[Rfam]
RNA sequence: AGCUUAUAAAGAAAGGUGGAGGGACAGGCCCUUUGAAACCUUGGCAACCUUUUAAAUUAUUAAUUCCGGUGCCAAAUCCUUCCCGUAUAAAUCGGGAUUGAUAAGUC
Numbered sequence: 001a002g003c004u005u006a007u008a009a010a011g012a013a014a015g016g017u018g019g020a021g022g023g024a025c026a027g028g029c030c031c032u033u034u035g036a037a038a039c040c041u042u043g044g045c046a047a048c049c050u051u052u053u054a055a056a057u058u059a060u061u062a063a064u065u066c067c068g069g070u071g072c073c074a075a076a077u078c079c080u081u082c083c084c085g086u087a088u089a090a091a092u093c094g095g096g097a098u099u100g101a102u103a104a105g106u107c
Stems, first nucleotide, its partner, number of pairs: 002106006013042005021031003026080003043073004048069002052063002082096004
Dot-bracket structure: .((((((.....(((((...(((..[[[)))......)))))((((.((..((........))....))))))....]]].((((.......))))....)))))).
The record is a 107-nucleotide RNA sequence from Brumimicrobium salinarum, which matches "SAM riboswitch aptamer (S box leader)" in Rfam. Pairs were carried over by alignment from the consensus structure, which is taken from published work. Taxonomically the source falls in Brumimicrobium (Bacteria, Pseudomonadati, Flavobacteriales, Crocinitomicaceae).